Rfam assigns this 209-nucleotide RNA sequence from Pseudomonas sp. SDI to the family "PhrS". For this family Rfam cites "Detection of small RNAs in Pseudomonas aeruginosa by RNomics and structure-based bioinformatic tools" (Sonnleitner et al., Microbiology, 2008). Its family is annotated with quorum sensing in the Gene Ontology. Taxonomically the source falls in Pseudomonas (Bacteria, Pseudomonadati, Pseudomonadales, Pseudomonadaceae). The base pairs follow the family's consensus structure, which was predicted with CMfinder.

RNA sequence: AUCAGACAGGUGCAGGCAAAUGGAGGCCUCCAUGUUCUUCGAUAAUGUGGUUAUCGCUGGGGUGGUUACGGUCGGCCUGAUGUUACUUUUCUUCGUCGGUUUCGGCAUUUUCAUCUGGAAGGAUUCGAACAAGCGCAAGCAGCGCUGAUGCUUCCAGGUAGCACGAGCACGCAAGGCAUUUAGGGCGACUUCGGUCGCCCAUUUUUUUU
Numbered sequence: 001a002u003c004a005g006a007c008a009g010g011u012g013c014a015g016g017c018a019a020a021u022g023g024a025g026g027c028c029u030c031c032a033u034g035u036u037c038u039u040c041g042a043u044a045a046u047g048u049g050g051u052u053a054u055c056g057c058u059g060g061g062g063u064g065g066u067u068a069c070g071g072u073c074g075g076c077c078u079g080a081u082g083u084u085a086c087u088u089u090u091c092u093u094c095g096u097c098g099g100u101u102u103c104g105g106c107a108u109u110u111u112c113a114u115c116u117g118g119a120a121g122g123a124u125u126c127g128a129a130c131a132a133g134c135g136c137a138a139g140c141a142g143c144g145c146u147g148a149u150g151c152u153u154c155c156a157g158g159u160a161g162c163a164c165g166a167g168c169a170c171g172c173a174a175g176g177c178a179u180u181u182a183g184g185g186c187g188a189c190u191u192c193g194g195u196c197g198c199c200c201a202u203u204u205u206u207u208u209u
Stems, first nucleotide, its partner, number of pairs: 005097003047057003075084001077082001167177002170175001183200007